The family of this 116-nucleotide RNA from Arthrobacter terricola is "SAM (S-adenosyl methionine) riboswitch aptamer". About the family: SAM-IV is a mRNA element that regulates gene expression via direct sensing of S-adenosylmethionine (SAM or AdoMet). SAM-IV riboswitches share conserved nucleotide positions with the previously described SAM-I riboswitches sequence analysis and molecular recognition experiments suggest that SAM-I and SAM-IV riboswitches share similar ligand binding sites, but have different scaffolds. Rfam 15.1 lists 2,360 matches to the family in 1,305 species. It scores 110 bits against the family's covariance model.
RNA sequence: GGUCAUGAGUGCCAGCAACAGCCCCGGCUUGCUGGCCGGCAACCCUCCUCUCGCGGUGGGGUGCCCCGGGUGAAGACCUGGCCCUUCGCUUGAUUGGCGGCGGGCAAGCGCGAUGU
Numbered sequence: 001g002g003u004c005a006u007g008a009g010u011g012c013c014a015g016c017a018a019c020a021g022c023c024c025c026g027g028c029u030u031g032c033u034g035g036c037c038g039g040c041a042a043c044c045c046u047c048c049u050c051u052c053g054c055g056g057u058g059g060g061g062u063g064c065c066c067c068g069g070g071u072g073a074a075g076a077c078c079u080g081g082c083c084c085u086u087c088g089c090u091u092g093a094u095u096g097g098c099g100g101c102g103g104g105c106a107a108g109c110g111c112g113a114u115g116u
Stems, first nucleotide, its partner, number of pairs: 001078004009037001011036006020029002038065003043061003047056002081105004086100005